[Rfam]
RNA sequence: ACAUGCUUCCUUACUAUUCCAUAGUUAUUCUCUAUAGCCAUAUGGAAUGUAAAGAAGUAUGUAUUGAUACU
Number, nucleotide and partner (000 for none) at each position: 001a062002c061003a060004u059005g058006c057007u056008u055009c054010c000011u052012u051013a050014c049015u000016a000017u000018u000019c045020c044021a043022u042023a041024g000025u000026u000027a000028u000029u000030c000031u000032c000033u000034a000035u000036a000037g000038c000039c000040a000041u023042a022043u021044g020045g019046a000047a000048u000049g014050u013051a012052a011053a000054g009055a008056a007057g006058u005059a004060u003061g002062u001063a000064u000065u000066g000067a000068u000069a000070c000071u000

A member of the RNA family "mir-1 microRNA precursor family" from Patiria miniata, 71 nucleotides long. From the family's description: This family represents the microRNA (miRNA) mir-1 family. miRNAs are transcribed as ~70nt precursors (modelled here) and subsequently processed by the Dicer enzyme to give a ~22nt product. In this case the mature sequence comes from the 3' arm of the precursor. The extents of the hairpin precursors are not generally known and are estimated based on hairpin prediction. The literature on the family includes a 2001 paper in Science by Lee and Ambros, "An extensive class of small RNAs in Caenorhabditis elegans". It is one of the family's seed sequences. Taxonomically the source falls in Patiria (Eukaryota, Metazoa, Eleutherozoa, Valvatacea).